[Rfam]
RNA sequence: UGCUGUUAGUGAUGAUUUUUGAAAUAGAUGGGAAUCUCUCUGAAAAAGAGUGAAGAUUUUUAAAAACUGAAACAGUA
Numbered sequence: 001u002g003c004u005g006u007u008a009g010u011g012a013u014g015a016u017u018u019u020u021g022a023a024a025u026a027g028a029u030g031g032g033a034a035u036c037u038c039u040c041u042g043a044a045a046a047a048g049a050g051u052g053a054a055g056a057u058u059u060u061u062a063a064a065a066a067c068u069g070a071a072a073c074a075g076u077a
Stems, first nucleotide, its partner, number of pairs: 001077007

A member of the RNA family "Small nucleolar RNA SNORD79" from Canis lupus, 77 nucleotides long. NCBI's taxonomy places the organism under Eukaryota, Bilateria, Chordata, Canidae, Canis lupus. Rfam describes the family as follows. snoRNA U79 or Z22 is found in intron 7 of the gas5 gene in humans and is also present in mice. It is annotated as a C/D-box small nucleolar RNA. Its Rfam clan is "SNORD74 clan". On this family, see Galardi et al., Mol Cell Biol 2002: "Purified box C/D snoRNPs are able to reproduce site-specific 2'-O-methylation of target RNA in vitro".